[Rfam]
RNA sequence: CUCUGGAUUCGCAUGUAAUCCAGGGCGGAAAGAG
Number, nucleotide and partner (000 for none) at each position: 001c025002u024003c023004u022005g021006g020007a019008u018009u000010c000011g000012c000013a000014u000015g000016u000017a000018a008019u007020c006021c005022a004023g003024g002025g001026c000027g000028g000029a000030a000031a000032g000033a000034g000

The family of this 34-nucleotide RNA from Paenibacillus curdlanolyticus is "L31-Firmicutes ribosomal protein leader".
For this family Rfam cites "Discovery of 20 novel ribosomal leader candidates in bacteria and archaea" (Eckert and Weinberg, BMC Microbiol, 2020).
The sequence is in the family's curated seed alignment.
The organism belongs to Paenibacillus curdlanolyticus, within Bacteria.